[Rfam]
RNA sequence: CGUAUCCAAGGAGCGUUGCGACAGACACCGUCUGCCAGGCUUGGUACAGUCAUUUUGCAACUGCGCUCACGUUAC
Numbered sequence: 001c002g003u004a005u006c007c008a009a010g011g012a013g014c015g016u017u018g019c020g021a022c023a024g025a026c027a028c029c030g031u032c033u034g035c036c037a038g039g040c041u042u043g044g045u046a047c048a049g050u051c052a053u054u055u056u057g058c059a060a061c062u063g064c065g066c067u068c069a070c071g072u073u074a075c
Stems, first nucleotide, its partner, number of pairs: 002047003006044004022034005
SAH (S-adenosyl-L-homocysteine) riboswitch aptamer: a 75-nucleotide sequence from Collimonas fungivorans. It scores 59 bits against the family's covariance model. Taxonomically the source falls in Collimonas fungivorans (Bacteria, Betaproteobacteria, Burkholderiales, Oxalobacteraceae).